The record is a 101-nucleotide RNA sequence from Defluviitalea raffinosedens, which matches "Purine riboswitch aptamer" in Rfam. A search with the family's covariance model found it, with a score of 78 bits. Rfam describes the family as follows. Riboswitches are metabolite binding domains within certain messenger RNAs that serve as precision sensors for their corresponding targets.
RNA sequence: UCAAUAAUAAAUGCGUUCACUUAUAUAAAUCUAGAAAUAUGGUCUAGAUGUCUCUACCGACAACCGUAAAUUGUCUGGCUAUGGGUGAAACGAAUGUUUUA
Numbered sequence: 001u002c003a004a005u006a007a008u009a010a011a012u013g014c015g016u017u018c019a020c021u022u023a024u025a026u027a028a029a030u031c032u033a034g035a036a037a038u039a040u041g042g043u044c045u046a047g048a049u050g051u052c053u054c055u056a057c058c059g060a061c062a063a064c065c066g067u068a069a070a071u072u073g074u075c076u077g078g079c080u081a082u083g084g085g086u087g088a089a090a091c092g093a094a095u096g097u098u099u100u101a
Stems, first nucleotide, its partner, number of pairs: 018087008029049007058077001059075005
Dot-bracket structure: .................((((((((...(((((((.......)))))))........((((((.......))))).)..))))))))..............